The family of this 303-nucleotide RNA sequence from Quercus lobata is "Plant signal recognition particle RNA".
[Rfam]
RNA sequence: ACCGAGCUCAGUAACGUGAGUUUGUAACCCAAGUGGGGGCAUAAAUGUGAUGGGACUUUGGCCCAAACCAGUUGGUUGGAUUCAGUGAGGCUUUCAUUCUGGCCCGCCCGUUCCAAGCAAAGAGAUGAGCCAAUGGACUUGAGCUAAGGCUCUGGGUUCAGUGGUUCCUAAAGAGGAGGGCAAUGCAUGAGGCUGGUUUCACAGAGCAGCGACUACCUCCCACUCUUUGCAGUGGAAGGAUAAUGGGCCAGUGCCAAUUGGAUCCAACAUGGCCACUGUCAACCCAACUGAACCAUCACUUUU
Numbered sequence: 001a002c003c004g005a006g007c008u009c010a011g012u013a014a015c016g017u018g019a020g021u022u023u024g025u026a027a028c029c030c031a032a033g034u035g036g037g038g039g040c041a042u043a044a045a046u047g048u049g050a051u052g053g054g055a056c057u058u059u060g061g062c063c064c065a066a067a068c069c070a071g072u073u074g075g076u077u078g079g080a081u082u083c084a085g086u087g088a089g090g091c092u093u094u095c096a097u098u099c100u101g102g103c104c105c106g107c108c109c110g111u112u113c114c115a116a117g118c119a120a121a122g123a124g125a126u127g128a129g130c131c132a133a134u135g136g137a138c139u140u141g142a143g144c145u146a147a148g149g150c151u152c153u154g155g156g157u158u159c160a161g162u163g164g165u166u167c168c169u170a171a172a173g174a175g176g177a178g179g180g181c182a183a184u185g186c187a188u189g190a191g192g193c194u195g196g197u198u199u200c201a202c203a204g205a206g207c208a209g210c211g212a213c214u215a216c217c218u219c220c221c222a223c224u225c226u227u228u229g230c231a232g233u234g235g236a237a238g239g240a241u242a243a244u245g246g247g248c249c250a251g252u253g254c255c256a257a258u259u260g261g262a263u264c265c266a267a268c269a270u271g272g273c274c275a276c277u278g279u280c281a282a283c284c285c286a287a288c289u290g291a292a293c294c295a296u297c298a299c300u301u302u303u
Stems, first nucleotide, its partner, number of pairs: 002039002004023007028037003043303003047299007056290001058287003061283001065279001071277001073275005078265009089255002092253001099251008108239002111237005117230008127167006134160008142151003168173001175220005186211001188209001193204003
Dot-bracket structure: .(((((((((......)))))))....(((....)))))...(((.(((((((..(.((((...(.....(.((((((((((((((..((.(......((((((((.((.(((((.((((((((..((((((.(((((((((((....))).)))))))).))))))(....).(((((......(.(....(((......)))....).)....)))))..))))))))..)))))))....)))))))).))).))))))))).....))))).).)...).)))..)..))))))).)))

On this family, see Rosenblad et al., Nucleic Acids Res 2003: "SRPDB: Signal Recognition Particle Database". The match comes from Rfam's covariance-model search (232 bits). Rfam classes the family as a non-coding RNA gene. Lineage of the source: Eukaryota > Tracheophyta > Magnoliopsida > rosids > Quercus.